[Rfam]
Nucleotides: 058
Base pairs, nucleotide, nucleotide: 010025011024012023013022016049017048018047019046020045021044030039031038032037
Number, partner (000 for none) and nucleotide at each position: 001000a002000a003000a004000a005000u006000g007000u008000a009000u010025g011024g012023c013022g014000a015000u016049g017048g018047a019046g020045c021044u022013c023012g024011c025010c026000u027000a028000a029000u030039g031038c032037u033000g034000u035000u036000a037032a038031g039030c040000u041000g042000a043000u044021g045020g046019c047018u048017c049016c050000u051000a052000c053000c054000a055000g056000g057000a058000c